This 40-nucleotide RNA sequence from Pantoea agglomerans belongs to the Rfam family "nuoG RNA". The family's consensus secondary structure is taken from published work.
[Rfam]
RNA sequence: GAAUAUGAUUAACGCUCGUCUCUGACGAGCCUUACGGAAG
Numbered sequence: 001g002a003a004u005a006u007g008a009u010u011a012a013c014g015c016u017c018g019u020c021u022c023u024g025a026c027g028a029g030c031c032u033u034a035c036g037g038a039a040g
Base pairs, nucleotide, nucleotide: 014030015029016028017027018026019025020024